[Rfam]
RNA sequence: UCGCGCUUCGGAGAUGGCAUGCCUCCCUUAACCGCCGGUAGCCCGGCUGAUGAUGCCUGCGCGUUC
Numbered sequence: 001u002c003g004c005g006c007u008u009c010g011g012a013g014a015u016g017g018c019a020u021g022c023c024u025c026c027c028u029u030a031a032c033c034g035c036c037g038g039u040a041g042c043c044c045g046g047c048u049g050a051u052g053a054u055g056c057c058u059g060c061g062c063g064u065u066c
Stems, first nucleotide, its partner, number of pairs: 010026004016057005034047004
RNA: Fluoride riboswitch aptamer (crcB RNA motif)